[Rfam]
Shown here is a 106-nucleotide RNA from Umboniibacter marinipuniceus, a member of the family "SAM-I/IV (S-adenosyl methionine) riboswitch aptamer".
The family is grouped with related families in Rfam's "SAM clan".
Gene Ontology terms of the family: regulation of gene expression and S-adenosylmethionine metabolic process.
The literature on the family includes a 2014 paper in PNAS by Trausch et al., "Structural basis for diversity in the SAM clan of riboswitches".
RNA sequence: ACGGAGCAUCAAGAGAGGGCAUGCCCUCGCCAACCUGCUUACCUGAGCAAGGUGGUUACUCCUAACUGGGAGGAUGUGACGCAAUAGCGUAACCAAACAGGUUUCC
Numbered sequence: 001a002c003g004g005a006g007c008a009u010c011a012a013g014a015g016a017g018g019g020c021a022u023g024c025c026c027u028c029g030c031c032a033a034c035c036u037g038c039u040u041a042c043c044u045g046a047g048c049a050a051g052g053u054g055g056u057u058a059c060u061c062c063u064a065a066c067u068g069g070g071a072g073g074a075u076g077u078g079a080c081g082c083a084a085u086a087g088c089g090u091a092a093c094c095a096a097a098c099a100g101g102u103u104u105c106c
Stems, first nucleotide, its partner, number of pairs: 006077005015028005029056003034052003037048003041102005079090004